[Rfam]
RNA sequence: UUUUGGAGAUGAUGAUUUAUAUCAGAGGCUGUUUCUGAGGAUGAGCCUUGAGCUCACCCAGUGCUGCAAAAGAACUGAUUUGCCGUUCUGAUCCAAUU
Number, nucleotide and partner (000 for none) at each position: 001u000002u000003u096004u095005g094006g093007a092008g000009a000010u000011g000012a000013u000014g000015a000016u000017u000018u000019a000020u000021a000022u000023c000024a000025g000026a000027g000028g000029c000030u000031g000032u000033u000034u000035c000036u000037g000038a000039g000040g000041a000042u056043g055044a054045g053046c052047c000048u000049u000050g000051a000052g046053c045054u044055c043056a042057c000058c000059c000060a000061g000062u000063g000064c000065u000066g083067c082068a081069a080070a079071a000072g000073a000074a000075c000076u000077g000078a000079u070080u069081u068082g067083c066084c000085g000086u000087u000088c000089u000090g000091a000092u007093c006094c005095a004096a003097u000098u000
Shown here is a 98-nucleotide sequence from Oryza sativa, a member of the family "Small nucleolar RNA Z119". Rfam links the family to the GO terms nucleolus and RNA processing. Rfam classes the family as a C/D-box small nucleolar RNA.